[Rfam]
RNA sequence: UACUUAUCUAGAGCGGCGGAGGGACUGGCCUGUUGAUGCCGCGGCAACCUGCAUAGAGCAAGGUGCCAAUUCCAGCAAAAUGAUAUCCAUUUUGGGAGAUAAGGU
Numbered sequence: 001u002a003c004u005u006a007u008c009u010a011g012a013g014c015g016g017c018g019g020a021g022g023g024a025c026u027g028g029c030c031u032g033u034u035g036a037u038g039c040c041g042c043g044g045c046a047a048c049c050u051g052c053a054u055a056g057a058g059c060a061a062g063g064u065g066c067c068a069a070u071u072c073c074a075g076c077a078a079a080a081u082g083a084u085a086u087c088c089a090u091u092u093u094g095g096g097a098g099a100u101a102a103g104g105u
Stems, first nucleotide, its partner, number of pairs: 003103006013042005021031003025075004043067004048063002050060003071097001076094006